[Rfam]
RNA sequence: CUUUUAGACCUGUGCAAUGGGCCCUUGGAGCAAUGCUUCAGGGUGGGAACACAGCAGAGCCCUCCAGAGGUUCAUGUGCCGCAGGUAUCUGAAGGGGGG
Numbered sequence: 001c002u003u004u005u006a007g008a009c010c011u012g013u014g015c016a017a018u019g020g021g022c023c024c025u026u027g028g029a030g031c032a033a034u035g036c037u038u039c040a041g042g043g044u045g046g047g048a049a050c051a052c053a054g055c056a057g058a059g060c061c062c063u064c065c066a067g068a069g070g071u072u073c074a075u076g077u078g079c080c081g082c083a084g085g086u087a088u089c090u091g092a093a094g095g096g097g098g099g
Stems, first nucleotide, its partner, number of pairs: 004092005009085006015076001017075006025067006035060004043052003
RNA: Bacterial small signal recognition particle RNA